[Rfam]
RNA sequence: UUAAGAGGUUGUCUCUGUCGUUACCCACAAGUUGGGAUACGGGAAUGCAACUGUUGA
Dot-bracket structure: ......((((((.....((((...((........))..))))....)))))).....
Shown here is a 57-nucleotide RNA sequence, a member of the family "Transposase-1 RNA". The base pairs follow the family's consensus structure, which is taken from published work.